Shown here is a 215-nucleotide RNA from Hydrogenispora ethanolica, a member of the family "c-di-AMP riboswitch aptamer (ydaO/yuaA leader)".
RNA sequence: UCAUCUGAAUCGCUUAAUCCCCUUUUAAAACCAAGGGGAGCGGGGGAACCAAUUCUAUGGGGUGAAUCACCGACCGGAGCCAGGAUCAACAGCCGCAAGCCCGAACCACGACGGUUCAGACUGCGGUCUCCACGACCGGACAUCCGCCACGGUGUAGGGGUACUCUUCAUUCCGAACCCGACAGCUAACCUCGUCAGCGUUGAAAGAGAGGUGAC
Numbered sequence: 001u002c003a004u005c006u007g008a009a010u011c012g013c014u015u016a017a018u019c020c021c022c023u024u025u026u027a028a029a030a031c032c033a034a035g036g037g038g039a040g041c042g043g044g045g046g047a048a049c050c051a052a053u054u055c056u057a058u059g060g061g062g063u064g065a066a067u068c069a070c071c072g073a074c075c076g077g078a079g080c081c082a083g084g085a086u087c088a089a090c091a092g093c094c095g096c097a098a099g100c101c102c103g104a105a106c107c108a109c110g111a112c113g114g115u116u117c118a119g120a121c122u123g124c125g126g127u128c129u130c131c132a133c134g135a136c137c138g139g140a141c142a143u144c145c146g147c148c149a150c151g152g153u154g155u156a157g158g159g160g161u162a163c164u165c166u167u168c169a170u171u172c173c174g175a176a177c178c179c180g181a182c183a184g185c186u187a188a189c190c191u192c193g194u195c196a197g198c199g200u201u202g203a204a205a206g207a208g209a210g211g212u213g214a215c
Stems, first nucleotide, its partner, number of pairs: 011199004018039007040194006050059002060179003068154004157173004